[Rfam]
RNA sequence: AUGAGAACAAGGGGAGAGACUACUUCAAAGUAGCGCCGAAGGAGCAAACAAAAAUUUGUGAAUCUCUCAGGCAAAAGAACUCUUGUUUGACG
Dot-bracket structure: .....((((((((......((((......)))).(((((..(((...((........))....))))).))).......)))))))).....
Shown here is a 92-nucleotide sequence from Bacillus sp. Y1, a member of the family "Glycine riboswitch aptamer". The match comes from Rfam's covariance-model search (74 bits). Lineage of the source: Bacteria > Bacillati > Bacilli > Bacillaceae > Bacillus. Rfam's curators write: This family represents the bacterial glycine riboswitch.